[Rfam]
RNA sequence: GGUCGCUUAGCUCAGUUGGUUAGAGCGUGGUGCUAAUAUCUGUUCUGAUUCAUCAGUAAGGUUUGGCACGCCAAGGUCGGCGGUUCGAAACCGCCAGUGAUCA
Numbered sequence: 001g002g003u004c005g006c007u008u009a010g011c012u013c014a015g016u017u018g019g020u021u022a023g024a025g026c027g028u029g030g031u032g033c034u035a036a037u038a039u040c041u042g043u044u045c046u047g048a049u050u051c052a053u054c055a056g057u058a059a060g061g062u063u064u065g066g067c068a069c070g071c072c073a074a075g076g077u078c079g080g081c082g083g084u085u086c087g088a089a090a091c092c093g094c095c096a097g098u099g100a101u102c103a
Stems, first nucleotide, its partner, number of pairs: 001102007010026004028073005079095005
RNA: tRNA